[Rfam]
RNA sequence: AACCUCGCCUCUUGGCGAAAAAUAAACUAAAGGCUAAGGUACUGGUAGACCGUGCAUCGGGCCGAAGGUAACGAGGUCAGAAGAAAAAGCAGACAA
Numbered sequence: 001a002a003c004c005u006c007g008c009c010u011c012u013u014g015g016c017g018a019a020a021a022a023u024a025a026a027c028u029a030a031a032g033g034c035u036a037a038g039g040u041a042c043u044g045g046u047a048g049a050c051c052g053u054g055c056a057u058c059g060g061g062c063c064g065a066a067g068g069u070a071a072c073g074a075g076g077u078c079a080g081a082a083g084a085a086a087a088a089g090c091a092g093a094c095a096a
Stems, first nucleotide, its partner, number of pairs: 006017004040070003048063001051059002